This 167-nucleotide RNA sequence from Clostridium saccharobutylicum belongs to the Rfam family "Lysine riboswitch aptamer". The organism belongs to Clostridium saccharobutylicum, within Bacteria. Rfam describes the family as follows. Riboswitches are metabolite binding domains within certain messenger RNAs that serve as precision sensors for their corresponding targets. The base pairs follow the family's consensus structure, which is taken from published work. It scores 93 bits against the family's covariance model.
[Rfam]
RNA sequence: ACCUGAGGUAGAGGUGCCAGUAAUAAAUAGUACUUAUAAUGAGUCGGCAGACAAUGACUUAUAAGGAAAGGUAUUAUGGCCGAAGAUUUAAAUUAUGCAAAAAUUUAUUUCUGGGGAUGCAUAAAAUAUAUGUAUAACUGUCACGAAAGUGGAGAGCUACAAGGAAU
Dot-bracket structure: .......((((....((((.(((((.......(((((((...................)))))))......)))))))))...(((..((((((.......))))))..)))((..(((((((.....)))))))..)).((((....))))....)))).......